[Rfam]
Source information: The family of this 359-nucleotide part of an RNA from Halococcoides cellulosivorans is "Archaeal large subunit ribosomal RNA". Taxonomically the source falls in Halococcoides (Archaea, Methanobacteriota, Halobacteria, Haloarculaceae). Pairs were carried over by alignment from the consensus structure, which is taken from published work.
RNA sequence: CGGGAAUAACCGACGUUAGGGAAUUCGGCAAAUUGGCCCCGUAAGUUCGCGAUAAGGGGUGCCUGCCUCGGAAAGAGGCAGGUCGCAGUGACCUGGACGCUCCGACUGUCUAGUAACAACAUAGGUGACCGCAAAUGCGCAAGCACUCGUACGGUCACUGAAUCCUGCCCAGUGCGGGUAUCUGAACACCCAUUACAAUGGGACGAAGGACCCGUCAACGGCGGGGGUAACUAUGACCCUCUUAAGGUAGCGUAGUACCUUGCCGCUUCAGUAGCGGCUUGCAUGAAUGGAUUAACGAGAGCGUCGCUGUCCCAACGUUGGGCCCGGUGAACCGUACGUUCCAGUGCGGAGUCUGGAGA
Numbered sequence: 001c002g003g004g005a006a007u008a009a010c011c012g013a014c015g016u017u018a019g020g021g022a023a024u025u026c027g028g029c030a031a032a033u034u035g036g037c038c039c040c041g042u043a044a045g046u047u048c049g050c051g052a053u054a055a056g057g058g059g060u061g062c063c064u065g066c067c068u069c070g071g072a073a074a075g076a077g078g079c080a081g082g083u084c085g086c087a088g089u090g091a092c093c094u095g096g097a098c099g100c101u102c103c104g105a106c107u108g109u110c111u112a113g114u115a116a117c118a119a120c121a122u123a124g125g126u127g128a129c130c131g132c133a134a135a136u137g138c139g140c141a142a143g144c145a146c147u148c149g150u151a152c153g154g155u156c157a158c159u160g161a162a163u164c165c166u167g168c169c170c171a172g173u174g175c176g177g178g179u180a181u182c183u184g185a186a187c188a189c190c191c192a193u194u195a196c197a198a199u200g201g202g203a204c205g206a207a208g209g210a211c212c213c214g215u216c217a218a219c220g221g222c223g224g225g226g227g228u229a230a231c232u233a234u235g236a237c238c239c240u241c242u243u244a245a246g247g248u249a250g251c252g253u254a255g256u257a258c259c260u261u262g263c264c265g266c267u268u269c270a271g272u273a274g275c276g277g278c279u280u281g282c283a284u285g286a287a288u289g290g291a292u293u294a295a296c297g298a299g300a301g302c303g304u305c306g307c308u309g310u311c312c313c314a315a316c317g318u319u320g321g322g323c324c325c326g327g328u329g330a331a332c333c334g335u336a337c338g339u340u341c342c343a344g345u346g347c348g349g350a351g352u353c354u355g356g357a358g359a
Stems, first nucleotide, its partner, number of pairs: 001326004010321008019312003036060005045050001061083009084088001096305007103297002107121003124159008132149001136145003162292004167222003172219002174215005181210003189202004223241006242246001262278006340357005